[Rfam]
Nucleotides: 035
Base pairs, nucleotide, nucleotide: 001035002034003033004032006031008029010028012027013026014025015024016023017021
Number, partner (000 for none) and nucleotide at each position: 001035c002034u003033g004032u005000g006031u007000c008029u009000u010028g011000c012027u013026u014025c015024a016023a017021c018000c019000g020000u021017g022000u023016u024015u025014g026013a027012a028010c029008a030000c031006a032004a033003c034002a035001g